[Rfam]
Shown here is a 211-nucleotide RNA from Streptomyces somaliensis, a member of the family "Streptomyces RNA 1601". Identified by deep sequencing of transcriptome at the end of exponential growth phase. Appears longer on northern blot than sequencing transcript. Streptomyces specific. The family's RNA type in Rfam is small RNA. The literature on the family includes a 2011 paper in RNA Biol by Vockenhuber et al., "Deep sequencing-based identification of small non-coding RNAs in Streptomyces coelicolor". The source organism's lineage runs through Bacteria, Kitasatosporales, Streptomycetaceae, Streptomyces and Streptomyces somaliensis.

RNA sequence: GACGACCGGCCGGAACCGCAUCAGCUCCGGCCCACAAGUGGAGGCUCCGUCUCCCACCUGGCCGCCCCCGGGGCGGCGGGUCACCGGUCAGGCGGCGCCCAUCGUUCCGUACGGACGAUGGACCCGCCCGAGCACAGCGCCCCGCGGUACACCGUGGCGGUGCUCCGGUAUCACCAGGAGCCCCGCCUGUGUCCCGUCCGGGGCGUUUUUU
Number, nucleotide and partner (000 for none) at each position: 001g000002a000003c000004g089005a088006c087007c086008g085009g084010c000011c000012g028013g027014a000015a000016c000017c000018g000019c000020a000021u000022c000023a000024g000025c000026u000027c013028c012029g082030g081031c080032c079033c078034a000035c060036a059037a000038g057039u056040g055041g054042a052043g051044g000045c000046u000047c000048c000049g000050u000051c043052u042053c000054c041055c040056a039057c038058c000059u036060g035061g077062c076063c075064g074065c073066c072067c071068c000069c000070g000071g067072g066073g065074c064075g063076g062077c061078g033079g032080g031081u030082c029083a000084c009085c008086g007087g006088u005089c004090a000091g128092g127093c126094g125095g124096c000097g000098c000099c121100c120101a119102u118103c117104g116105u115106u114107c000108c000109g000110u000111a000112c000113g000114g106115a105116c104117g103118a102119u101120g100121g099122a000123c000124c095125c094126g093127c092128c091129c000130g000131a000132g000133c000134a000135c000136a000137g000138c000139g204140c203141c202142c201143c200144g199145c196146g195147g194148u000149a000150c000151a000152c000153c191154g190155u189156g187157g186158c185159g184160g183161u000162g181163c180164u179165c178166c177167g000168g000169u000170a000171u000172c000173a000174c000175c000176a000177g166178g165179a164180g163181c162182c000183c160184c159185g158186c157187c156188u000189g155190u154191g153192u000193c000194c147195c146196g145197u000198c000199c144200g143201g142202g141203g140204c139205g000206u000207u000208u000209u000210u000211u000